This 189-nucleotide RNA sequence from Diploscapter pachys belongs to the Rfam family "U2 spliceosomal RNA". Pairs were carried over by alignment from the consensus structure, which is taken from published work. Rfam classes the family as a spliceosomal small nuclear RNA.
[Rfam]
RNA sequence: AUCGCUUCUCGGCCUUAUGGCUAAGAUCAAAGUUAGUAACUGUUCUUAUCGAAUUAACCUUCUAUAUCUCCUCAAUUGAGGAGAGGUAAGGUUAUUUGAUUUUUGGAGGCUUGAUCGGAACCGGGGCUUGCUCCGACCGAUCACGGGUCGUUCCAGCGUGGCACUAGAGCUGGACACGGCCCACACCCC
Dot-bracket structure: ......(((.((((....)))).)))....................(((.((........)).))).((((((....)))))).............................((((((....((((....))))..))))))..((((((.((((((...........))))))..)))))).......
Numbered sequence: 001a002u003c004g005c006u007u008c009u010c011g012g013c014c015u016u017a018u019g020g021c022u023a024a025g026a027u028c029a030a031a032g033u034u035a036g037u038a039a040c041u042g043u044u045c046u047u048a049u050c051g052a053a054u055u056a057a058c059c060u061u062c063u064a065u066a067u068c069u070c071c072u073c074a075a076u077u078g079a080g081g082a083g084a085g086g087u088a089a090g091g092u093u094a095u096u097u098g099a100u101u102u103u104u105g106g107a108g109g110c111u112u113g114a115u116c117g118g119a120a121c122c123g124g125g126g127c128u129u130g131c132u133c134c135g136a137c138c139g140a141u142c143a144c145g146g147g148u149c150g151u152u153c154c155a156g157c158g159u160g161g162c163a164c165u166a167g168a169g170c171u172g173g174a175c176a177c178g179g180c181c182c183a184c185a186c187c188c189c
Stems, first nucleotide, its partner, number of pairs: 007026003011022004047066003051062002068083006113142006123134004145182006152174006
Notes
A reference for the family is Newby and Greenbaum (2001), "A conserved pseudouridine modification in eukaryotic U2 snRNA induces a change in branch-site architecture", RNA. Rfam links the family to the GO terms mRNA branch site recognition, U2 snRNP and pre-mRNA branch point binding. Taxonomically the source falls in Diploscapter (Eukaryota, Nematoda, Chromadorea, Rhabditomorpha). It scores 134 bits against the family's covariance model.